Vault RNA: a 100-nucleotide RNA from Oryzias melastigma.
Taxonomically the source falls in Oryzias (Eukaryota, Atherinomorphae, Adrianichthyoidei, Oryziinae).
The base pairs follow the family's consensus structure, which is taken from published work.
It is annotated as a non-coding RNA gene.
It scores 65 bits against the family's covariance model.
RNA sequence: GCAUCGGUUUAGCUCAGUGGUUACUUCUUACAAUCUGAACGUUUCCAUUUGACGAUCCGCGGGUUGCCAAGUUCGACCACGGGCGCUGUCCGAUGUUUUU
Numbered sequence: 001g002c003a004u005c006g007g008u009u010u011a012g013c014u015c016a017g018u019g020g021u022u023a024c025u026u027c028u029u030a031c032a033a034u035c036u037g038a039a040c041g042u043u044u045c046c047a048u049u050u051g052a053c054g055a056u057c058c059g060c061g062g063g064u065u066g067c068c069a070a071g072u073u074c075g076a077c078c079a080c081g082g083g084c085g086c087u088g089u090c091c092g093a094u095g096u097u098u099u100u
Stems, first nucleotide, its partner, number of pairs: 002095006012084004017080004026076002